[Rfam]
RNA sequence: GUCGGCGUCUAUACCGUACAGACGAGCGCUGUGCCGGUGGUCACCGAACUGCCGGGCCGCACGAACGCCUUCCUCGUCGCGCAAGUGCGUGCACGCGUGGACGGCAUCGUGCAGCGCCGUGACUUCAUCGAAGGCAGCGAAGUGAAGGCAGGCCAACGCCUGUACAAGAUCGA
Numbered sequence: 001g002u003c004g005g006c007g008u009c010u011a012u013a014c015c016g017u018a019c020a021g022a023c024g025a026g027c028g029c030u031g032u033g034c035c036g037g038u039g040g041u042c043a044c045c046g047a048a049c050u051g052c053c054g055g056g057c058c059g060c061a062c063g064a065a066c067g068c069c070u071u072c073c074u075c076g077u078c079g080c081g082c083a084a085g086u087g088c089g090u091g092c093a094c095g096c097g098u099g100g101a102c103g104g105c106a107u108c109g110u111g112c113a114g115c116g117c118c119g120u121g122a123c124u125u126c127a128u129c130g131a132a133g134g135c136a137g138c139g140a141a142g143u144g145a146a147g148g149c150a151g152g153c154c155a156a157c158g159c160c161u162g163u164a165c166a167a168g169a170u171c172g173a
Stems, first nucleotide, its partner, number of pairs: 003054005008047002013041004019036001021034001023031002056149003059143002067135002072133001074131002079092004094121002097118001100115001102114001104112003157172002160168002